[Rfam]
RNA sequence: UGGAUUGAUACACGUUCAGGCAAGGACGGGGGAACCAUAAAACGGCGAACUAAACAGUUCGCCUUGGGGUGAAGCCCGGUCUCGUAACGCACAAAUGCUCAAGUCGCAGGCAGUUGCUUGCGCCUGGGGCGCCCGUGUGCACAGGGCCCGGGCCGGAUCAAAAGUUGCACUCUCUGAUCCGAAUCCGACAGCUAACUCCGCAGGUGUCCCAAAGAGAGGUA
Numbered sequence: 001u002g003g004a005u006u007g008a009u010a011c012a013c014g015u016u017c018a019g020g021c022a023a024g025g026a027c028g029g030g031g032g033a034a035c036c037a038u039a040a041a042a043c044g045g046c047g048a049a050c051u052a053a054a055c056a057g058u059u060c061g062c063c064u065u066g067g068g069g070u071g072a073a074g075c076c077c078g079g080u081c082u083c084g085u086a087a088c089g090c091a092c093a094a095a096u097g098c099u100c101a102a103g104u105c106g107c108a109g110g111c112a113g114u115u116g117c118u119u120g121c122g123c124c125u126g127g128g129g130c131g132c133c134c135g136u137g138u139g140c141a142c143a144g145g146g147c148c149c150g151g152g153c154c155g156g157a158u159c160a161a162a163a164g165u166u167g168c169a170c171u172c173u174c175u176g177a178u179c180c181g182a183a184u185c186c187g188a189c190a191g192c193u194a195a196c197u198c199c200g201c202a203g204g205u206g207u208c209c210c211a212a213a214g215a216g217a218g219g220u221a
Stems, first nucleotide, its partner, number of pairs: 001023001027200005036066002067186003075152004155180006

The record is a 221-nucleotide RNA sequence from Arthrobacter alpinus, which matches "c-di-AMP riboswitch aptamer (ydaO/yuaA leader)" in Rfam. It scores 43 bits against the family's covariance model.